[Rfam]
RNA sequence: UUCCCGGCAUGUCAAUCGGGCGCAAUGGCAAGAAGAAUGCAGAGGUUUUCCCGAUUUCUCUCUGUGGCCAACGCAAUGGCAGUCGAGCUUCUAUCCCAUUUGCCU
Numbered sequence: 001u002u003c004c005c006g007g008c009a010u011g012u013c014a015a016u017c018g019g020g021c022g023c024a025a026u027g028g029c030a031a032g033a034a035g036a037a038u039g040c041a042g043a044g045g046u047u048u049u050c051c052c053g054a055u056u057u058c059u060c061u062c063u064g065u066g067g068c069c070a071a072c073g074c075a076a077u078g079g080c081a082g083u084c085g086a087g088c089u090u091c092u093a094u095c096c097c098a099u100u101u102g103c104c105u
Base pairs, nucleotide, nucleotide: 006104007103008102009101010022011021012020013019024100025099026098027096028095032091033090034089035088038066039065040064041063042062043061044060067080068079069078
Description: The record is a 105-nucleotide RNA sequence from Rhabdonatronobacter sediminivivens, which matches "Rhizobiales sRNA Atu_At1" in Rfam. Lineage of the source: Bacteria > Pseudomonadati > Alphaproteobacteria > Rhodobacterales > Rhabdonatronobacter.